[Rfam]
RNA: mir-5928 microRNA precursor family
Organism: Haemonchus placei
RNA sequence: GGUCCAAAUUUGAAGUAGAGUAGAUUAGUAGGAUCAGCUGACCAUACUAAUCUACUCUAUAUCAAAUUUAGGCAC
Numbered sequence: 001g002g003u004c005c006a007a008a009u010u011u012g013a014a015g016u017a018g019a020g021u022a023g024a025u026u027a028g029u030a031g032g033a034u035c036a037g038c039u040g041a042c043c044a045u046a047c048u049a050a051u052c053u054a055c056u057c058u059a060u061a062u063c064a065a066a067u068u069u070a071g072g073c074a075c
Stems, first nucleotide, its partner, number of pairs: 002073003006069004011064003015060009025050006032043001034041002